[Rfam]
RNA sequence: GGAAUAUAAGAACCUUUCUCUUAACUUUUAACUAAAAAACCUAAGAACCGGCUCUUAAAAAAGAGUUUUAAGAAACAAUUCUUAGCUUUUUUAGUUAAAAGUUAAGAUACGAGUUCUUAUAUUCC
Numbered sequence: 001g002g003a004a005u006a007u008a009a010g011a012a013c014c015u016u017u018c019u020c021u022u023a024a025c026u027u028u029u030a031a032c033u034a035a036a037a038a039a040c041c042u043a044a045g046a047a048c049c050g051g052c053u054c055u056u057a058a059a060a061a062a063g064a065g066u067u068u069u070a071a072g073a074a075a076c077a078a079u080u081c082u083u084a085g086c087u088u089u090u091u092u093a094g095u096u097a098a099a100a101g102u103u104a105a106g107a108u109a110c111g112a113g114u115u116c117u118u119a120u121a122u123u124c125c
Base pairs, nucleotide, nucleotide: 001125002124003123004122005121006120007119008118009117010116011115012114013113015111017109019107020106021105022104023103024102025101026100027099028098029097030096031095032094033093034092035091036090037089038088039087041085042084043083044082045081046080047079

The record is a 125-nucleotide RNA from Brassica oleracea, which matches "MIR9563 microRNA precursor family" in Rfam. The base pairs follow the family's consensus structure, which was predicted with RNAalifold. Its family is annotated with RISC complex and miRNA-mediated post-transcriptional gene silencing in the Gene Ontology. The source organism's lineage runs through Eukaryota, Streptophytina, Euphyllophyta, Gunneridae and Brassica oleracea. A search with the family's covariance model found it, with a score of 115 bits.